[Rfam]
RNA sequence: AUUAUAAGCUAUAGAAAUAAUGAAAAAUGGCUGCUGGUACUCAAAUGGUACUGGAAGUAAAAAAAGAAUAAACUAAAUAAUUCUUCCAAGUGGUUUGCAUUUGGACAAAAAAUAAGACCGUAACUUGAUUGUUAU
Numbered sequence: 001a002u003u004a005u006a007a008g009c010u011a012u013a014g015a016a017a018u019a020a021u022g023a024a025a026a027a028u029g030g031c032u033g034c035u036g037g038u039a040c041u042c043a044a045a046u047g048g049u050a051c052u053g054g055a056a057g058u059a060a061a062a063a064a065a066g067a068a069u070a071a072a073c074u075a076a077a078u079a080a081u082u083c084u085u086c087c088a089a090g091u092g093g094u095u096u097g098c099a100u101u102u103g104g105a106c107a108a109a110a111a112a113u114a115a116g117a118c119c120g121u122a123a124c125u126u127g128a129u130u131g132u133u134a135u
Base pairs, nucleotide, nucleotide: 007032008031009030010029011028012027038128045121046120047119048118053069084105086104087103088102089101090100091099092098
RNA: Streptococcus sRNA SpR18
Organism: Peptostreptococcus anaerobius